RNA: glmS glucosamine-6-phosphate activated ribozyme aptamer
RNA sequence: ACUUCGAGAAAAGCGCCAGAGCUUGCCAUCGCCCGGAGAAUGGAUGGUAAGCUGACGAGGUUGGGGUUUAUCGAAGAAUUCGGCGGAUGCCCCACGGUGGCCUGCCACCGACAGAGGUCCACAAAACCGGCGAGUGAUCGCCGGCACAAAGGGAUUUCGGCAGGAAU
Numbered sequence: 001a002c003u004u005c006g007a008g009a010a011a012a013g014c015g016c017c018a019g020a021g022c023u024u025g026c027c028a029u030c031g032c033c034c035g036g037a038g039a040a041u042g043g044a045u046g047g048u049a050a051g052c053u054g055a056c057g058a059g060g061u062u063g064g065g066g067u068u069u070a071u072c073g074a075a076g077a078a079u080u081c082g083g084c085g086g087a088u089g090c091c092c093c094a095c096g097g098u099g100g101c102c103u104g105c106c107a108c109c110g111a112c113a114g115a116g117g118u119c120c121a122c123a124a125a126a127c128c129g130g131c132g133a134g135u136g137a138u139c140g141c142c143g144g145c146a147c148a149a150a151g152g153g154a155u156u157u158c159g160g161c162a163g164g165a166a167u
Stems, first nucleotide, its partner, number of pairs: 020053008029044001062094005071083004095110006115157006127144007